[Rfam]
RNA sequence: AGAUUGAAUGUGAGAGUUUGAUGAAACCAGAUCCUUUUGCUUUCUUAGAUAUGAGAGGAUUUGGUAUCCUCCAAUAUCUCACCUUCAAUGG
Numbered sequence: 001a002g003a004u005u006g007a008a009u010g011u012g013a014g015a016g017u018u019u020g021a022u023g024a025a026a027c028c029a030g031a032u033c034c035u036u037u038u039g040c041u042u043u044c045u046u047a048g049a050u051a052u053g054a055g056a057g058g059a060u061u062u063g064g065u066a067u068c069c070u071c072c073a074a075u076a077u078c079u080c081a082c083c084u085u086c087a088a089u090g091g
Stems, first nucleotide, its partner, number of pairs: 004088005011081004016075003020071002023068002026065005032059005